[Rfam]
RNA sequence: GUAGUCGACUAAAUCGUCGCCGCUGUUAUAACUUCGGUUAAUAGCAGGGGAGGAAAGUCCGGGCUUCAUAGGGUAGGGUGCCAGGUAACGCCUGGGUAGCGCGAGCUAACGACAAGUGCAGCAGAGAGGAGACCGCCAGCUAAUUUAUUAGUUGGUAAGGGUGAAAGGGUGCGGUAAGAGCGCACCGGCUAAUGGGUAAUCAUUAGUGCAAGGUAAACUCCACCCGAAGCAAGACCAAAUAGGCUUCCUGAGGUAUGACCCAUACUGGAAGCGGGUAGGUUGCUUGAGCCAGUGAGCGAUUGCUGGCCUAGACGAAUGACGAUUCACGACAGAACCCGGCUUAUCGGUUGGCUACAACC
Numbered sequence: 001g002u003a004g005u006c007g008a009c010u011a012a013a014u015c016g017u018c019g020c021c022g023c024u025g026u027u028a029u030a031a032c033u034u035c036g037g038u039u040a041a042u043a044g045c046a047g048g049g050g051a052g053g054a055a056a057g058u059c060c061g062g063g064c065u066u067c068a069u070a071g072g073g074u075a076g077g078g079u080g081c082c083a084g085g086u087a088a089c090g091c092c093u094g095g096g097u098a099g100c101g102c103g104a105g106c107u108a109a110c111g112a113c114a115a116g117u118g119c120a121g122c123a124g125a126g127a128g129g130a131g132a133c134c135g136c137c138a139g140c141u142a143a144u145u146u147a148u149u150a151g152u153u154g155g156u157a158a159g160g161g162u163g164a165a166a167g168g169g170u171g172c173g174g175u176a177a178g179a180g181c182g183c184a185c186c187g188g189c190u191a192a193u194g195g196g197u198a199a200u201c202a203u204u205a206g207u208g209c210a211a212g213g214u215a216a217a218c219u220c221c222a223c224c225c226g227a228a229g230c231a232a233g234a235c236c237a238a239a240u241a242g243g244c245u246u247c248c249u250g251a252g253g254u255a256u257g258a259c260c261c262a263u264a265c266u267g268g269a270a271g272c273g274g275g276u277a278g279g280u281u282g283c284u285u286g287a288g289c290c291a292g293u294g295a296g297c298g299a300u301u302g303c304u305g306g307c308c309u310a311g312a313c314g315a316a317u318g319a320c321g322a323u324u325c326a327c328g329a330c331a332g333a334a335c336c337c338g339g340c341u342u343a344u345c346g347g348u349u350g351g352c353u354a355c356a357a358c359c
Stems, first nucleotide, its partner, number of pairs: 001355010011344001012324007020050002023047006055342003059339005064229004071261004076225005081095005096110001097108004111220002116218002118214002133160002135156009168186006187209001188207008233281004243272006252266005288307008
The family of this 359-nucleotide RNA from Psychromonas sp. psych-6C06 is "Bacterial RNase P class A".
Gene Ontology terms of the family: ribonuclease P activity, tRNA processing and dimeric ribonuclease P complex.
Taxonomically the source falls in Psychromonas (Bacteria, Pseudomonadati, Gammaproteobacteria, Alteromonadales).
About the family: Ribonuclease P (RNase P) is a ubiquitous endoribonuclease, found in archaea, bacteria and eukarya as well as chloroplasts and mitochondria.